The family of this 92-nucleotide sequence from Phocoena sinus is "Small nucleolar RNA SNORD116". Lineage of the source: Eukaryota > Craniata > Vertebrata > Phocoenidae > Phocoena. Pairs were carried over by alignment from the consensus structure, which was predicted with PFOLD.

RNA sequence: GGAUCGAUGAUGACCCCCACUAAUGCAUUCCUUGGAAAUCUGAACCAAAUGAGUGAGAAGCCACUACCGUCUCCUCAUUGGAACUGAGGUCC
Numbered sequence: 001g002g003a004u005c006g007a008u009g010a011u012g013a014c015c016c017c018c019a020c021u022a023a024u025g026c027a028u029u030c031c032u033u034g035g036a037a038a039u040c041u042g043a044a045c046c047a048a049a050u051g052a053g054u055g056a057g058a059a060g061c062c063a064c065u066a067c068c069g070u071c072u073c074c075u076c077a078u079u080g081g082a083a084c085u086g087a088g089g090u091c092c
Base pairs, nucleotide, nucleotide: 001092002091003090004089005088026055027054028053029052030051032047034045
The match comes from Rfam's covariance-model search (92 bits).